[Rfam]
RNA: Neisseria metabolic switch regulator b (RcoF1/NgncR163)
Organism: Neisseria dentiae
RNA sequence: ACAUCAGGUUGCAAUGCGCAGCUUGAUGUUUUCUCCUCUAUUUCUCCUUUGUAGACUUGGCGCAUACCUUAACCGGAUAUGCGCAUUUUU
Dot-bracket structure: ..(((((((((.......))))))))).........(((((.........)))))....(((((((.((.....)).)))))))......